This 71-nucleotide RNA from Octopus sinensis belongs to the Rfam family "RNA-OUT". Lineage of the source: Eukaryota > Spiralia > Mollusca > Octopodidae > Octopus. Transposition of insertion sequence IS10 is regulated by an anti-sense RNA which inhibits transposase expression when IS10 is present in multiple copies per cell. The anti-sense RNA (RNA-OUT) consists of a stem domain topped by a flexibly paired loop; the 5' end of the target molecule, RNA-IN, is complementary to the top of the loop, and complementarity extends for 35 base-pairs down one side of RNA-OUT. This bacterial RNA is also found in the genomic sequence of eukaryotic organisms. The family's consensus secondary structure was predicted with PFOLD. By type it is an antisense RNA. Rfam 15.1 lists 102 matches to the family in 57 species.

RNA sequence: UUGCGCAUUUGUUAUGCUUAUCAAAAGUUUUUAGGAAAAAACUUUUGAUAAGCAUAACAAAUGCGCAACCG
Numbered sequence: 001u002u003g004c005g006c007a008u009u010u011g012u013u014a015u016g017c018u019u020a021u022c023a024a025a026a027g028u029u030u031u032u033a034g035g036a037a038a039a040a041a042c043u044u045u046u047g048a049u050a051a052g053c054a055u056a057a058c059a060a061a062u063g064c065g066c067a068a069c070c071g
Base pairs, nucleotide, nucleotide: 003066004065005064006063007062008061009060010059011058012057013056014055015054016053018051019050037046038045039044